RNA sequence: UUAAAGCUCCAUCAACAAAUGGAUAAGACUUUGGUUUUAGUGUAUACGAGUUUUUGAAAAUAAGGGAGCAAUAACCACUUUCUUGUUCUAGCAAGAGUGUUGGUAUUGCUCCUUU
Numbered sequence: 001u002u003a004a005a006g007c008u009c010c011a012u013c014a015a016c017a018a019a020u021g022g023a024u025a026a027g028a029c030u031u032u033g034g035u036u037u038u039a040g041u042g043u044a045u046a047c048g049a050g051u052u053u054u055u056g057a058a059a060a061u062a063a064g065g066g067a068g069c070a071a072u073a074a075c076c077a078c079u080u081u082c083u084u085g086u087u088c089u090a091g092c093a094a095g096a097g098u099g100u101u102g103g104u105a106u107u108g109c110u111c112c113u114u115u
Base pairs, nucleotide, nucleotide: 008023009022010021011020012019062115063114064113065112066111067110068109069108070107071106072105073104077100078099080097081096082095083094084093
Rfam assigns this 115-nucleotide RNA from Gossypium armourianum to the family "Plastid-psbA-1 3UTR RNA". On this family, see Richter et al., Plant Commun 2023: "Retrograde signaling in plants: A critical review focusing on the GUN pathway and beyond". It scores 122 bits against the family's covariance model. Rfam's curators write: Plastid psbA-1 is a non-coding RNA (ncRNA) present in plastids.